[Rfam]
RNA sequence: UAAAGUUAUGAGUCUUCAUUCCCGAUAGGAUUCACUAGCUCUAGUGAAGAUGCCUUGUAACCGAAAAACGAAUUGGGGGAAUUUUUUAUG
Numbered sequence: 001u002a003a004a005g006u007u008a009u010g011a012g013u014c015u016u017c018a019u020u021c022c023c024g025a026u027a028g029g030a031u032u033c034a035c036u037a038g039c040u041c042u043a044g045u046g047a048a049g050a051u052g053c054c055u056u057g058u059a060a061c062c063g064a065a066a067a068a069c070g071a072a073u074u075g076g077g078g079g080a081a082u083u084u085u086u087u088a089u090g
Stems, first nucleotide, its partner, number of pairs: 019081005027055003031048005061076002

Background: This 90-nucleotide RNA sequence from Secundilactobacillus similis belongs to the Rfam family "SAM-III riboswitch aptamer (SMK box)". NCBI's taxonomy places the organism under Bacteria, Bacilli, Lactobacillaceae, Secundilactobacillus, Secundilactobacillus similis. A search with the family's covariance model found it, with a score of 70 bits.